A member of the RNA family "Small nucleolar RNA SNORD59" from Podarcis muralis, 72 nucleotides long. The family's RNA type in Rfam is C/D-box small nucleolar RNA. On this family, see Galardi et al., Mol Cell Biol 2002: "Purified box C/D snoRNPs are able to reproduce site-specific 2'-O-methylation of target RNA in vitro". Its family is annotated with RNA processing and nucleolus in the Gene Ontology. Rfam 15.1 lists 1,355 matches to the family in 620 species. Clan: SNORD59 clan. Lineage of the source: Eukaryota > Dipnotetrapodomorpha > Tetrapoda > Lacertibaenia > Podarcis.

[Rfam]
RNA sequence: CCUUCACUGAUGAGUAAAUUUAUGACUUUCGUUCUUCUGAGAUUGCUGAAGCCACUCUUAUUUCUGAGAAGG
Numbered sequence: 001c002c003u004u005c006a007c008u009g010a011u012g013a014g015u016a017a018a019u020u021u022a023u024g025a026c027u028u029u030c031g032u033u034c035u036u037c038u039g040a041g042a043u044u045g046c047u048g049a050a051g052c053c054a055c056u057c058u059u060a061u062u063u064c065u066g067a068g069a070a071g072g
Stems, first nucleotide, its partner, number of pairs: 001072003005068001